Rfam assigns this 166-nucleotide sequence from Eubacterium sp. CAG:156 to the family "Clostridiales-1 RNA".

RNA sequence: UAAUGCCUGAGUCAAAAGGGCUAACCCCACAUGAACUUGCUCAUAAGUGGGUGAAAGACCUUAGGACCCGCGCCAAUAUGAGCAAAAAGCGGGAAGACUAUCCCACGAUAUGCGAAUAUUGGGUAGAAUCAAAGUUGGGGUGCCCCUGAAAUUAUAUAAAGUACUA
Numbered sequence: 001u002a003a004u005g006c007c008u009g010a011g012u013c014a015a016a017a018g019g020g021c022u023a024a025c026c027c028c029a030c031a032u033g034a035a036c037u038u039g040c041u042c043a044u045a046a047g048u049g050g051g052u053g054a055a056a057g058a059c060c061u062u063a064g065g066a067c068c069c070g071c072g073c074c075a076a077u078a079u080g081a082g083c084a085a086a087a088a089g090c091g092g093g094a095a096g097a098c099u100a101u102c103c104c105a106c107g108a109u110a111u112g113c114g115a116a117u118a119u120u121g122g123g124u125a126g127a128a129u130c131a132a133a134g135u136u137g138g139g140g141u142g143c144c145c146c147u148g149a150a151a152u153u154a155u156a157u158a159a160a161g162u163a164c165u166a
Base pairs, nucleotide, nucleotide: 001166002165004163005162006161011067012066013065016062017061018060019059021057022056025053026051027050028049029048030047031044032043033042034041073122074121075120076119077118078117079116082113083112084111089106091104092103093102094101126157128155129154131152137147138146139145140144
Taxonomically the source falls in Eubacterium (Bacteria, Bacillati, Bacillota, Eubacteriales). It is annotated as a small RNA.